[Rfam]
The record is an 82-nucleotide RNA sequence from Galleria mellonella, which matches "mir-998 microRNA precursor family" in Rfam. It scores 60 bits against the family's covariance model. Pairs were carried over by alignment from the consensus structure, which was predicted with RNAalifold.
RNA sequence: GCGUGUUGUCCGCGAGCUGCAUCCCGUGCGGCUCCAGUAUCCCCGUGUAGCACCAUGGGAUUCAGCUCACGGCGGCACACUA
Number, nucleotide and partner (000 for none) at each position: 001g000002c000003g080004u079005g078006u077007u000008g000009u074010c000011c072012g000013c000014g068015a067016g000017c065018u064019g063020c000021a000022u060023c059024c058025c057026g056027u055028g054029c000030g000031g000032c050033u049034c000035c047036a046037g000038u000039a000040u000041c000042c000043c000044c000045g000046u036047g035048u000049a033050g032051c000052a000053c000054c028055a027056u026057g025058g024059g023060a022061u000062u000063c019064a018065g017066c000067u015068c014069a000070c000071g000072g011073c000074g009075g000076c000077a006078c005079a004080c003081u000082a000